[Rfam]
RNA sequence: AGUCUCCUACCGUGUUCGCCAGGCCAUAUAUUCCUUGAACCAUUUAUGUGCAUAGGCUGAGGAAAUUGUUCAAUGGCGUGAGCGUCGCUUAUGUCCGAUGAACCCGAUUUGAACUGACCUUGACCAACUUGAACCGCCAGGUUCAGGAUGCCGGCCAGCGGCACAGGUGGGAACUUA
Numbered sequence: 001a002g003u004c005u006c007c008u009a010c011c012g013u014g015u016u017c018g019c020c021a022g023g024c025c026a027u028a029u030a031u032u033c034c035u036u037g038a039a040c041c042a043u044u045u046a047u048g049u050g051c052a053u054a055g056g057c058u059g060a061g062g063a064a065a066u067u068g069u070u071c072a073a074u075g076g077c078g079u080g081a082g083c084g085u086c087g088c089u090u091a092u093g094u095c096c097g098a099u100g101a102a103c104c105c106g107a108u109u110u111g112a113a114c115u116g117a118c119c120u121u122g123a124c125c126a127a128c129u130u131g132a133a134c135c136g137c138c139a140g141g142u143u144c145a146g147g148a149u150g151c152c153g154g155c156c157a158g159c160g161g162c163a164c165a166g167g168u169g170g171g172a173a174c175u176u177a
Base pairs, nucleotide, nucleotide: 002175005172006171007170008169009168010167011166012164013163014162015161017160018159019158032148033147034146036145037144038143039142040141041140055125056124059121060120061119062118068114069113070112071111072110073109078104083100084099085098086097087096

The family of this 177-nucleotide RNA sequence from Affinundibacterium nitidum is "6S / SsrS RNA". The match comes from Rfam's covariance-model search (65 bits). Rfam's curators write: E. coli 6S RNA was the first non coding RNA to be sequenced, but its function was unknown until recently. The base pairs follow the family's consensus structure, which is taken from published work. Taxonomically the source falls in Affinundibacterium (Bacteria, Pseudomonadati, Betaproteobacteria, Burkholderiales).